The family of this 57-nucleotide RNA sequence from Corchorus olitorius is "Plastid-rps18 3UTR RNA". About the family: Plastid rps18 is a non-coding RNA (ncRNA) present in plastids. It was identified as a short stem-loop motif in the 3 prime untranslate region (3UTR) of rps18 gene. By type it is a cis-regulatory element. A reference for the family is Richter et al. (2023), "Retrograde signaling in plants: A critical review focusing on the GUN pathway and beyond", Plant Commun. The base pairs follow the family's consensus structure, which was predicted with LocARNA.
[Rfam]
RNA sequence: UGCAAGUAUUUAACAAUUAAGAAGCAACUAUUUCUUGUAUAGAUUGUGUAUAAAUCU
Number, nucleotide and partner (000 for none) at each position: 001u000002g000003c000004a000005a000006g000007u000008a000009u000010u000011u000012a000013a000014c000015a000016a000017u000018u037019a036020a035021g034022a033023a032024g031025c000026a000027a000028c000029u000030a000031u024032u023033u022034c021035u020036u019037g018038u000039a000040u000041a000042g000043a000044u000045u000046g000047u000048g000049u000050a000051u000052a000053a000054a000055u000056c000057u000